[Rfam]
RNA sequence: AAUUAAAGUGCUAAAGUGUCUAAUGAUGAGGACUCAUAGGGCAGAUUCUGAGGUGAGCACUGAACUCAUCACUGAUAAUUGUUUGAUGCGAUCUGAAGACACUUGAAAGUCU
Numbered sequence: 001a002a003u004u005a006a007a008g009u010g011c012u013a014a015a016g017u018g019u020c021u022a023a024u025g026a027u028g029a030g031g032a033c034u035c036a037u038a039g040g041g042c043a044g045a046u047u048c049u050g051a052g053g054u055g056a057g058c059a060c061u062g063a064a065c066u067c068a069u070c071a072c073u074g075a076u077a078a079u080u081g082u083u084u085g086a087u088g089c090g091a092u093c094u095g096a097a098g099a100c101a102c103u104u105g106a107a108a109g110u111c112u
Stems, first nucleotide, its partner, number of pairs: 014104008031092001033090001035088003038082001040080002044076001047075002050072001052070006

Rfam assigns this 112-nucleotide RNA sequence from Ornithorhynchus anatinus to the family "Small nucleolar RNA SNORD90". The base pairs follow the family's consensus structure, which was predicted with RNAalifold. snoRNA HBII-295 belongs to the family of C/D snoRNAs. It is the human orthologue of the mouse MBII-295 and has no identified RNA target. Gene Ontology terms of the family: nucleolus and RNA processing.